[Rfam]
RNA sequence: CGCCCGGCGUGGAUCCCGUGGGGGGAAUCCAACCGGGAUUGGGACGCCCCGACCGCGAG
Dot-bracket structure: (((((((..((((((((.....))).))))).)))))...(((...)))......))..
RNA: Streptomyces RNA 2736